The record is a 129-nucleotide RNA sequence from Quadrisphaera granulorum, which matches "ALIL pseudoknot" in Rfam. A search with the family's covariance model found it, with a score of 74 bits.
RNA sequence: GGCUUUCUUCGCGGCGGAGCUCGACCGCCCACAGCGGUGAUGGUCGCCUUCAUCGACGACCACCGCCAGGAGUUCGGAGUCGAGCCGAUCUGCACCGUGCUGACCAAGGCCGGCGCCCAGAUCGCCCCG
Numbered sequence: 001g002g003c004u005u006u007c008u009u010c011g012c013g014g015c016g017g018a019g020c021u022c023g024a025c026c027g028c029c030c031a032c033a034g035c036g037g038u039g040a041u042g043g044u045c046g047c048c049u050u051c052a053u054c055g056a057c058g059a060c061c062a063c064c065g066c067c068a069g070g071a072g073u074u075c076g077g078a079g080u081c082g083a084g085c086c087g088a089u090c091u092g093c094a095c096c097g098u099g100c101u102g103a104c105c106a107a108g109g110c111c112g113g114c115g116c117c118c119a120g121a122u123c124g125c126c127c128c129g
Stems, first nucleotide, its partner, number of pairs: 013029005075129003079125001086124002089121004